[Rfam]
RNA sequence: ACUGAUCAUCAGGAGUGGCCCCUCGGGGUCCGGCAACCUGGGACGGACACCCAAGGUGCCUUCUCGCUUCGGCGAGGAUGUGGCAGACCGCGCAGGUUCGCAACCAAGUGUCCGAAG
Numbered sequence: 001a002c003u004g005a006u007c008a009u010c011a012g013g014a015g016u017g018g019c020c021c022c023u024c025g026g027g028g029u030c031c032g033g034c035a036a037c038c039u040g041g042g043a044c045g046g047a048c049a050c051c052c053a054a055g056g057u058g059c060c061u062u063c064u065c066g067c068u069u070c071g072g073c074g075a076g077g078a079u080g081u082g083g084c085a086g087a088c089c090g091c092g093c094a095g096g097u098u099c100g101c102a103a104c105c106a107a108g109u110g111u112c113c114g115a116a117g
Base pairs, nucleotide, nucleotide: 007080008079009078010077015031017030018029019028020027021026032060033059034058037056038055039054040052041051042050045112046111083101084100086098087097088096089095
Shown here is a 117-nucleotide RNA, a member of the family "SAM-I/IV (S-adenosyl methionine) riboswitch aptamer". Its family is annotated with regulation of gene expression and S-adenosylmethionine metabolic process in the Gene Ontology. The literature on the family includes a 2008 paper in RNA by Weinberg et al., "The aptamer core of SAM-IV riboswitches mimics the ligand-binding site of SAM-I riboswitches".